[Rfam]
RNA: DUF805b RNA
RNA sequence: CAAGCGAAACCCGAAAAGCUUAUAGAGUAGGGG
Dot-bracket structure: .((((....[[[.....))))........]]].